[Rfam]
RNA: UnaL2 LINE 3' element
RNA sequence: UACGUUACUUAUUGUAAGUCACUUUGGAUAAAAGCUUCUGCUAAAUGCCCUAAA
Numbered sequence: 001u002a003c004g005u006u007a008c009u010u011a012u013u014g015u016a017a018g019u020c021a022c023u024u025u026g027g028a029u030a031a032a033a034g035c036u037u038c039u040g041c042u043a044a045a046u047g048c049c050c051u052a053a054a
Base pairs, nucleotide, nucleotide: 013043014041015040016039022034023033024032025031